This 89-nucleotide RNA sequence from Scyliorhinus torazame belongs to the Rfam family "Vault RNA". Rfam's curators write: This family of RNAs are found as part of the enigmatic vault ribonucleoprotein complex. Rfam classes the family as a non-coding RNA gene.
RNA sequence: GCGUCAGCUUUAGCUCACUGGCUACUUCACAGCAUCAACUUAAUUGUAAGUUCAAACCUGUCUCACCGUGGGCGCUGUCUGACGUUUUU
Numbered sequence: 001g002c003g004u005c006a007g008c009u010u011u012a013g014c015u016c017a018c019u020g021g022c023u024a025c026u027u028c029a030c031a032g033c034a035u036c037a038a039c040u041u042a043a044u045u046g047u048a049a050g051u052u053c054a055a056a057c058c059u060g061u062c063u064c065a066c067c068g069u070g071g072g073c074g075c076u077g078u079c080u081g082a083c084g085u086u087u088u089u
Stems, first nucleotide, its partner, number of pairs: 002084006013073004019068003026055002029052001